[Rfam]
RNA sequence: CAACUGCAUAUGCUGAAUUCCCUGAACAGGGAAACGGGGGAACCAUCGAAUCCGUCCGCGUCGCCGCGGCGGUUUCCCGGGGUGAAUCCUUCCUGCGCGCAGCGCGGAAGGUAGGGCACUCUCAAGCCCGAAUCCGACAGCUAACCUCGUAAGCCGAUUGAGAGAACCG
Numbered sequence: 001c002a003a004c005u006g007c008a009u010a011u012g013c014u015g016a017a018u019u020c021c022c023u024g025a026a027c028a029g030g031g032a033a034a035c036g037g038g039g040g041a042a043c044c045a046u047c048g049a050a051u052c053c054g055u056c057c058g059c060g061u062c063g064c065c066g067c068g069g070c071g072g073u074u075u076c077c078c079g080g081g082g083u084g085a086a087u088c089c090u091u092c093c094u095g096c097g098c099g100c101a102g103c104g105c106g107g108a109a110g111g112u113a114g115g116g117c118a119c120u121c122u123c124a125a126g127c128c129c130g131a132a133u134c135c136g137a138c139a140g141c142u143a144a145c146c147u148c149g150u151a152a153g154c155c156g157a158u159u160g161a162g163a164g165a166a167c168c169g
Base pairs, nucleotide, nucleotide: 012154013153014152018033019032020031021030022029023028034150035149036148037147038146039145044079080135081134082133088111089110090109091108092107093106114129115128116127117126
Dot-bracket structure: ...........(((...((((((....))))))((((((....(..................................)(((.....((((((............))))))..((((........))))...))).........)))))).)))...............